Shown here is a 600-nucleotide part of an RNA from Jiangella asiatica, a member of the family "Bacterial large subunit ribosomal RNA". The match comes from Rfam's covariance-model search (2767 bits). The organism belongs to Jiangella, within Bacteria.
RNA sequence: GGGCACAUGGUGGAUGCCUUGGCACCAGGAGCCGAUGAAGGACGUGGGAGCCUGCGAUAAUCCCUGGCGAGCUGGCAACCGAGCUAUGACCCGGGGGUGUCCGAAUGGGGAAACCCGGCGGCAGUCAUGUGCCGUCACCGUCACCUGAACACAUAGGGUGGUCGGAGGGAACGUGGGGAAGUGAAACAUCUCAGUACCCACAGGAAGAGAAAACAAGAGUGAUUCCGUGAGUAGUGGCGAGCGAAAGCGGAUGAGGCUAAACCGUGCGCGUGUGAUACCCGGCAGGGGUUGCGUGUGCGGUGUUGUGGGGUUGUGUUGAUUCAGCUGCUGCCGUGGCUGGUCUGGAGUGAUCAAUCGUUGUUGAAGUCGAAGGGCUUGAGAGGCCUGGCGUAGAGGGUGUUACCCCCGUAGACGUAAGGCAGCGACUCCAGUGAUGCGAUACCCGAGUAGCACGGGGCUCGUGGAAUCUCGUGUGAAUCUGGCGGGACCACCCGCUAAGCCUAAAUACUCCCUGGUGACCGAUAGCGGAUCAGUACCGUGAGGGAAUGGUGAAAAGUACCCCGGGAGGGGAGUGAAAUAGUACCUGAAACCAUGUGCCUA
Numbered sequence: 001g002g003g004c005a006c007a008u009g010g011u012g013g014a015u016g017c018c019u020u021g022g023c024a025c026c027a028g029g030a031g032c033c034g035a036u037g038a039a040g041g042a043c044g045u046g047g048g049a050g051c052c053u054g055c056g057a058u059a060a061u062c063c064c065u066g067g068c069g070a071g072c073u074g075g076c077a078a079c080c081g082a083g084c085u086a087u088g089a090c091c092c093g094g095g096g097g098u099g100u101c102c103g104a105a106u107g108g109g110g111a112a113a114c115c116c117g118g119c120g121g122c123a124g125u126c127a128u129g130u131g132c133c134g135u136c137a138c139c140g141u142c143a144c145c146u147g148a149a150c151a152c153a154u155a156g157g158g159u160g161g162u163c164g165g166a167g168g169g170a171a172c173g174u175g176g177g178g179a180a181g182u183g184a185a186a187c188a189u190c191u192c193a194g195u196a197c198c199c200a201c202a203g204g205a206a207g208a209g210a211a212a213a214c215a216a217g218a219g220u221g222a223u224u225c226c227g228u229g230a231g232u233a234g235u236g237g238c239g240a241g242c243g244a245a246a247g248c249g250g251a252u253g254a255g256g257c258u259a260a261a262c263c264g265u266g267c268g269c270g271u272g273u274g275a276u277a278c279c280c281g282g283c284a285g286g287g288g289u290u291g292c293g294u295g296u297g298c299g300g301u302g303u304u305g306u307g308g309g310g311u312u313g314u315g316u317u318g319a320u321u322c323a324g325c326u327g328c329u330g331c332c333g334u335g336g337c338u339g340g341u342c343u344g345g346a347g348u349g350a351u352c353a354a355u356c357g358u359u360g361u362u363g364a365a366g367u368c369g370a371a372g373g374g375c376u377u378g379a380g381a382g383g384c385c386u387g388g389c390g391u392a393g394a395g396g397g398u399g400u401u402a403c404c405c406c407c408g409u410a411g412a413c414g415u416a417a418g419g420c421a422g423c424g425a426c427u428c429c430a431g432u433g434a435u436g437c438g439a440u441a442c443c444c445g446a447g448u449a450g451c452a453c454g455g456g457g458c459u460c461g462u463g464g465a466a467u468c469u470c471g472u473g474u475g476a477a478u479c480u481g482g483c484g485g486g487a488c489c490a491c492c493c494g495c496u497a498a499g500c501c502u503a504a505a506u507a508c509u510c511c512c513u514g515g516u517g518a519c520c521g522a523u524a525g526c527g528g529a530u531c532a533g534u535a536c537c538g539u540g541a542g543g544g545a546a547u548g549g550u551g552a553a554a555a556g557u558a559c560c561c562c563g564g565g566a567g568g569g570g571a572g573u574g575a576a577a578u579a580g581u582a583c584c585u586g587a588a589a590c591c592a593u594g595u596g597c598c599u600a
Stems, first nucleotide, its partner, number of pairs: 001599010016584001017549002021520002023517007030509002032168002040102003043056003062096006071084003107116003117136007138165003141161006172203001173201005183190002213220002223505001224251005234242002254502004262300011307444003312438005353427001355425008366413003372386005389393001395407003450474008481496005536543002559570004